[Rfam]
RT-2 RNA: a 157-nucleotide RNA sequence.
RNA sequence: GGCAGUCAUGCCUAAAACUGCCCACUGACGGCCAAACACGGACGCUGCUUGCAUGGCGGGGUAUUGCGCUAUCCCCGUUUCAUGUGUCGGGCCAAAGUAGUUUAUACGCGCACCUACAAGACAACUAUGCGGAGGGCGAAUACUUUUUAUUAUGACC
Numbered sequence: 001g002g003c004a005g006u007c008a009u010g011c012c013u014a015a016a017a018c019u020g021c022c023c024a025c026u027g028a029c030g031g032c033c034a035a036a037c038a039c040g041g042a043c044g045c046u047g048c049u050u051g052c053a054u055g056g057c058g059g060g061g062u063a064u065u066g067c068g069c070u071a072u073c074c075c076c077g078u079u080u081c082a083u084g085u086g087u088c089g090g091g092c093c094a095a096a097g098u099a100g101u102u103u104a105u106a107c108g109c110g111c112a113c114c115u116a117c118a119a120g121a122c123a124a125c126u127a128u129g130c131g132g133a134g135g136g137c138g139a140a141u142a143c144u145u146u147u148u149a150u151u152a153u154g155a156c157c
Stems, first nucleotide, its partner, number of pairs: 001012004020137004025132003029129001030093004036087004044052002055079007097128005103123001104115001
Dot-bracket structure: ((((....)))).......((((.(((.(((((..((((....((.....))..(((((((...........)))))))....))))..))))...(((((.((..........).......)))))))))).))))....................